[Rfam]
RNA sequence: GCUUUACUUAUGAUGAUGUAAUAGUUCAUCUGACCCAUGAUGCUGAUUAACAGUUUUUGGUCUUUCACCCCUAUCUGAAGUGAAAG
Numbered sequence: 001g002c003u004u005u006a007c008u009u010a011u012g013a014u015g016a017u018g019u020a021a022u023a024g025u026u027c028a029u030c031u032g033a034c035c036c037a038u039g040a041u042g043c044u045g046a047u048u049a050a051c052a053g054u055u056u057u058u059g060g061u062c063u064u065u066c067a068c069c070c071c072u073a074u075c076u077g078a079a080g081u082g083a084a085a086g
Stems, first nucleotide, its partner, number of pairs: 004083005
The record is an 86-nucleotide RNA from Trichonephila clavipes, which matches "Small nucleolar RNA snR60/Z15/Z230/Z193/J17" in Rfam. Its family is annotated with RNA processing and nucleolus in the Gene Ontology. The match comes from Rfam's covariance-model search (55 bits). The base pairs follow the family's consensus structure. The family has 23 seed sequences and 3,592 matches in Rfam 15.1. The literature on the family includes a 1999 paper in Science by Lowe and Eddy, "A computational screen for methylation guide snoRNAs in yeast". Rfam classes the family as a C/D-box small nucleolar RNA.